[Rfam]
RNA sequence: UUUCACUACUAGGGGUGCCUAUGAGCGUAGGCUGAGAGAAAAGCGCGACAAUGCUUUUUAACUCUUAAGGACCUGAUCUGGUUUAUACCAGCGGAGGGAAGUAGCUAAUGCUGAUG
Numbered sequence: 001u002u003u004c005a006c007u008a009c010u011a012g013g014g015g016u017g018c019c020u021a022u023g024a025g026c027g028u029a030g031g032c033u034g035a036g037a038g039a040a041a042a043g044c045g046c047g048a049c050a051a052u053g054c055u056u057u058u059u060a061a062c063u064c065u066u067a068a069g070g071a072c073c074u075g076a077u078c079u080g081g082u083u084u085a086u087a088c089c090a091g092c093g094g095a096g097g098g099a100a101g102u103a104g105c106u107a108a109u110g111c112u113g114a115u116g
Stems, first nucleotide, its partner, number of pairs: 006104005011065004017032005039058007072097003078091004